[Rfam]
RNA sequence: CGGCUGUAGCCACAUAAAAGGUUAGAGGUUAACUGGCCGGUUGUCAUUUGUGCUUCCUUGGGAAGCUAAGUUGACAUAUCUGCUUACCGAGCUUCUUACAUUU
Number, nucleotide and partner (000 for none) at each position: 001c000002g000003g000004c000005u000006g000007u000008a000009g000010c000011c000012a000013c000014a000015u000016a000017a000018a000019a000020g000021g000022u000023u000024a096025g095026a094027g093028g092029u091030u090031a000032a000033c000034u000035g084036g083037c082038c000039g080040g079041u078042u000043g075044u074045c073046a072047u000048u000049u000050g000051u000052g000053c000054u000055u000056c000057c000058u000059u000060g000061g000062g000063a000064a000065g000066c000067u000068a000069a000070g000071u000072u046073g045074a044075c043076a000077u000078a041079u040080c039081u000082g037083c036084u035085u000086a000087c000088c000089g000090a030091g029092c028093u027094u026095c025096u024097u000098a000099c000100a000101u000102u000103u000
The record is a 103-nucleotide RNA sequence from Turnera subulata, which matches "Small nucleolar RNA snoR109" in Rfam. It is annotated as an H/ACA-box small nucleolar RNA. The family's consensus secondary structure was predicted with WAR. Gene Ontology terms of the family: nucleolus and RNA processing.